[Rfam]
RNA sequence: CUCGGUCGCGAGCUGCCUCCCGUGCGGCUGCAGUGCUCGCGUGUAGCACCAUGGGAUUCAGCUCACGGCCGCU
Numbered sequence: 001c002u003c004g005g006u007c008g009c010g011a012g013c014u015g016c017c018u019c020c021c022g023u024g025c026g027g028c029u030g031c032a033g034u035g036c037u038c039g040c041g042u043g044u045a046g047c048a049c050c051a052u053g054g055g056a057u058u059c060a061g062c063u064c065a066c067g068g069c070c071g072c073u
Stems, first nucleotide, its partner, number of pairs: 005070001007068001010064002013061003018056007028046005

mir-998 microRNA precursor family: a 73-nucleotide RNA from Bombyx mori. NCBI's taxonomy places the organism under Eukaryota, Mandibulata, Hexapoda, Aparaglossata, Bombyx.